[Rfam]
RNA sequence: AAGACUGUACUCGUACAGGAUCAUGUCUAUAGUAGUUACUUACACUUUGCUUCAGCAAAUGUAGGCAACCAACCAAGCUAGAAUGAUUCAGCAUGCACUCUGAUCUAUAAUUAGGAAUAUGAAUCCAUUUUAUUACAUGGAAUGCGAUUCGCGAUGCCCAUCCAUAUUUUGAGUGUUCUAGUAUUCUUUAUGGGUAUUAGAUCCUUUAAAUAUGUGAAGAUUUGAGUGUGUCUGACUAGCU
Number, nucleotide and partner (000 for none) at each position: 001a041002a040003g039004a000005c000006u035007g000008u034009a033010c032011u031012c000013g000014u000015a000016c000017a028018g027019g026020a000021u000022c000023a000024u000025g000026u019027c018028u017029a000030u000031a011032g010033u009034a008035g006036u000037u000038a000039c003040u002041u001042a000043c000044a000045c000046u067047u000048u065049g000050c000051u000052u000053c061054a000055g000056c000057a000058a000059a000060u000061g053062u000063a000064g000065g048066c000067a046068a000069c000070c000071a000072a000073c000074c000075a000076a000077g240078c239079u238080a237081g236082a000083a000084u000085g000086a000087u000088u000089c000090a000091g000092c000093a000094u000095g000096c228097a227098c226099u225100c224101u000102g222103a221104u220105c219106u218107a000108u000109a000110a000111u000112u160113a000114g158115g000116a000117a000118u000119a000120u000121g150122a149123a148124u000125c000126c144127a000128u000129u000130u000131u000132a000133u000134u000135a000136c000137a000138u000139g000140g000141a000142a000143u000144g126145c000146g000147a000148u123149u122150c121151g000152c000153g000154a000155u000156g000157c000158c114159c000160a112161u000162c000163c000164a213165u212166a211167u210168u000169u208170u000171g000172a000173g000174u000175g000176u000177u000178c000179u000180a000181g000182u000183a000184u000185u000186c000187u000188u000189u000190a000191u000192g000193g000194g000195u000196a000197u000198u000199a000200g000201a000202u000203c000204c000205u000206u000207u000208a169209a000210a167211u166212a165213u164214g000215u000216g000217a000218a106219g105220a104221u103222u102223u000224g100225a099226g098227u097228g096229u000230g000231u000232c000233u000234g000235a000236c081237u080238a079239g078240c077241u000
Source information: The record is a 241-nucleotide RNA sequence from Paramecium octaurelia, which matches "ACEA small nucleolar RNA U3" in Rfam. A search with the family's covariance model found it, with a score of 96 bits. Small nucleolar RNAs (snoRNAs) are involved in the processing and modification of rRNA in the nucleolus. Gene Ontology terms of the family: nucleolus and RNA processing. A reference for the family is Zwieb (1997), "The uRNA database", Nucleic Acids Res. The organism belongs to Paramecium, within Eukaryota. Clan: U3 clan. Rfam classes the family as a C/D-box small nucleolar RNA. The base pairs follow the family's consensus structure, which is taken from published work.